[Rfam]
RNA sequence: UGGCUGUAGCUAGAUUGAUUUAGAAGCUAUAUGGUCGGUGGUCGCGAGGGAGAUUUAGAUCUCUACGGUCGAUUCAUCUGCUUACCGAGUUUCUUACAUUU
Numbered sequence: 001u002g003g004c005u006g007u008a009g010c011u012a013g014a015u016u017g018a019u020u021u022a023g024a025a026g027c028u029a030u031a032u033g034g035u036c037g038g039u040g041g042u043c044g045c046g047a048g049g050g051a052g053a054u055u056u057a058g059a060u061c062u063c064u065a066c067g068g069u070c071g072a073u074u075c076a077u078c079u080g081c082u083u084a085c086c087g088a089g090u091u092u093c094u095u096a097c098a099u100u101u
Stems, first nucleotide, its partner, number of pairs: 022094007033082003037078004041073004
The family of this 101-nucleotide sequence from Arabis alpina is "Small nucleolar RNA snoR109". Gene Ontology terms of the family: RNA processing and nucleolus. The family's consensus secondary structure was predicted with WAR. The source organism's lineage runs through Eukaryota, Streptophytina, malvids, Brassicaceae and Arabis. The family's RNA type in Rfam is H/ACA-box small nucleolar RNA.